The record is a 241-nucleotide RNA sequence from Cohnella lupini, which matches "glmS glucosamine-6-phosphate activated ribozyme aptamer" in Rfam. NCBI's taxonomy places the organism under Bacteria, Bacillota, Caryophanales, Paenibacillaceae, Cohnella. The family's consensus secondary structure is taken from published work. From the family's description: This entry contains a glucosamine-6-phosphate activated ribozyme that is found in the mRNA for GlmS. GlmS is an enzyme that uses fructose-6-phosphate and glutamine to generate glucosamine-6-phosphate.
RNA sequence: AGGCAACACAAAGCGCCAGAGCUUGUCGAAUCGCGGAGUCGCGUCGGAGGGCGAAGAUCAGGAACGGGAAAGCUGAUCCGAGCAAAAAACUUCAACGUGAACGGCCGCGUGACCGCCAAGCUGACGAGGUGGGGGUGUUCGAAAUAUUCGGCGGGGACCUCCCGGCUUAUCAUCGGAGCCGACAAUCGGAACACAAAACGCUUAGGGCAACCAGGCGUACAAAAGUCCGAUACGAUGACUG
Numbered sequence: 001a002g003g004c005a006a007c008a009c010a011a012a013g014c015g016c017c018a019g020a021g022c023u024u025g026u027c028g029a030a031u032c033g034c035g036g037a038g039u040c041g042c043g044u045c046g047g048a049g050g051g052c053g054a055a056g057a058u059c060a061g062g063a064a065c066g067g068g069a070a071a072g073c074u075g076a077u078c079c080g081a082g083c084a085a086a087a088a089a090c091u092u093c094a095a096c097g098u099g100a101a102c103g104g105c106c107g108c109g110u111g112a113c114c115g116c117c118a119a120g121c122u123g124a125c126g127a128g129g130u131g132g133g134g135g136u137g138u139u140c141g142a143a144a145u146a147u148u149c150g151g152c153g154g155g156g157a158c159c160u161c162c163c164g165g166c167u168u169a170u171c172a173u174c175g176g177a178g179c180c181g182a183c184a185a186u187c188g189g190a191a192c193a194c195a196a197a198a199c200g201c202u203u204a205g206g207g208c209a210a211c212c213a214g215g216c217g218u219a220c221a222a223a224a225g226u227c228c229g230a231u232a233c234g235a236u237g238a239c240u241g
Stems, first nucleotide, its partner, number of pairs: 020122006027115001131162005139151004163181006185231006199217005205212002